[Rfam]
RNA: Bacterial large signal recognition particle RNA
RNA sequence: CCGUGCUAGGUGGGGAGGUAGCGGUGCCCUGUACUCGCAAUCCGCUAUAGCGAGACUGAAUUCCCAUCCGAGGUAGUUCGGCUUUAAGGUCUGCCUUAAGGGAUUGAUGUUGACACCCGGGUCCUGCGCAACAGGAACCCGUGAAUCCUGUCAGGUCCGGAAGGAAGCAGCAGUAAGCGGUGCUUUCUGUGUGCCGCAGGGAAGCCUGGGUCGAGUCAUGAACUUAAGUAACGCUUAGGGCUGUUCUAUCGAAGAUGGGUGCACGG
Numbered sequence: 001c002c003g004u005g006c007u008a009g010g011u012g013g014g015g016a017g018g019u020a021g022c023g024g025u026g027c028c029c030u031g032u033a034c035u036c037g038c039a040a041u042c043c044g045c046u047a048u049a050g051c052g053a054g055a056c057u058g059a060a061u062u063c064c065c066a067u068c069c070g071a072g073g074u075a076g077u078u079c080g081g082c083u084u085u086a087a088g089g090u091c092u093g094c095c096u097u098a099a100g101g102g103a104u105u106g107a108u109g110u111u112g113a114c115a116c117c118c119g120g121g122u123c124c125u126g127c128g129c130a131a132c133a134g135g136a137a138c139c140c141g142u143g144a145a146u147c148c149u150g151u152c153a154g155g156u157c158c159g160g161a162a163g164g165a166a167g168c169a170g171c172a173g174u175a176a177g178c179g180g181u182g183c184u185u186u187c188u189g190u191g192u193g194c195c196g197c198a199g200g201g202a203a204g205c206c207u208g209g210g211u212c213g214a215g216u217c218a219u220g221a222a223c224u225u226a227a228g229u230a231a232c233g234c235u236u237a238g239g240g241c242u243g244u245u246c247u248a249u250c251g252a253a254g255a256u257g258g259g260u261g262c263a264c265g266g
Stems, first nucleotide, its partner, number of pairs: 001266006009057003012030004017025001019023001034054005063259006072250005079243010092230002096227005104220001106217003115211008123200006129191002132189005139180004148173004156165003